[Rfam]
RNA sequence: UGGAGUGGGUGCAUGAUCGCUCCGGUUUCAAAAGCCGGGGAGGAAAGUCCGAACUCUACAGGGCAGGAUGGUUCGUAACACGAACGCCGGGUGACCGGGGGAAAGUGCCACAGAAAACAAACCGCCUGAACACGUUCAGGUAAGGGUGAAACGGUGAGGUAAGAGCUCACCGCCUCUCUGGUGACAGCGAGGGCACGGCAAACCCCAUCCAGAGCAAGACCAAAUAGGGAGAUGUUUGAGGGCGGCCCGUCCGAGAUCUCCGGGUAGGUUGCACGAGGUGUUGAGCGAUCAACAUCCUAGUUAAAUGAUCAUGGCCCCUCACGGGGUACAGAAUUCGGCUUAUAGCCCACUCCAUUUU
Numbered sequence: 001u002g003g004a005g006u007g008g009g010u011g012c013a014u015g016a017u018c019g020c021u022c023c024g025g026u027u028u029c030a031a032a033a034g035c036c037g038g039g040g041a042g043g044a045a046a047g048u049c050c051g052a053a054c055u056c057u058a059c060a061g062g063g064c065a066g067g068a069u070g071g072u073u074c075g076u077a078a079c080a081c082g083a084a085c086g087c088c089g090g091g092u093g094a095c096c097g098g099g100g101g102a103a104a105g106u107g108c109c110a111c112a113g114a115a116a117a118c119a120a121a122c123c124g125c126c127u128g129a130a131c132a133c134g135u136u137c138a139g140g141u142a143a144g145g146g147u148g149a150a151a152c153g154g155u156g157a158g159g160u161a162a163g164a165g166c167u168c169a170c171c172g173c174c175u176c177u178c179u180g181g182u183g184a185c186a187g188c189g190a191g192g193g194c195a196c197g198g199c200a201a202a203c204c205c206c207a208u209c210c211a212g213a214g215c216a217a218g219a220c221c222a223a224a225u226a227g228g229g230a231g232a233u234g235u236u237u238g239a240g241g242g243c244g245g246c247c248c249g250u251c252c253g254a255g256a257u258c259u260c261c262g263g264g265u266a267g268g269u270u271g272c273a274c275g276a277g278g279u280g281u282u283g284a285g286c287g288a289u290c291a292a293c294a295u296c297c298u299a300g301u302u303a304a305a306u307g308a309u310c311a312u313g314g315c316c317c318c319u320c321a322c323g324g325g326g327u328a329c330a331g332a333a334u335u336c337g338g339c340u341u342a343u344a345g346c347c348c349a350c351u352c353c354a355u356u357u358u
Stems, first nucleotide, its partner, number of pairs: 001354010011343001012313007020040009045341003049338005054214004061248004066210005071085005087098004100205002105203002107199003122145002124141007153171006172194001173192004178187003218270004228261006240252004277296008
Bacterial RNase P class A: a 358-nucleotide RNA from Desulfopila aestuarii. By type it is a ribozyme. The source organism's lineage runs through Bacteria, Pseudomonadati, Desulfocapsaceae, Desulfopila and Desulfopila aestuarii.